The record is an 86-nucleotide sequence from Xenopus laevis, which matches "Small nucleolar RNA MBII-202" in Rfam. The family has 30 seed sequences and 745 matches in Rfam 15.1. The match comes from Rfam's covariance-model search (50 bits). Its family is annotated with RNA processing and nucleolus in the Gene Ontology. The source organism's lineage runs through Eukaryota, Metazoa, Chordata, Anura and Xenopus.

[Rfam]
RNA sequence: GAUGACACUUUCUCCGGAAUCUCUGCAGUUCUGUGAUGAAUCGUGGUGAACCCUUUUCCAGCUGAUGACUGUAUGCUUGAAGAUAU
Dot-bracket structure: .(((.(...........................................................................).)))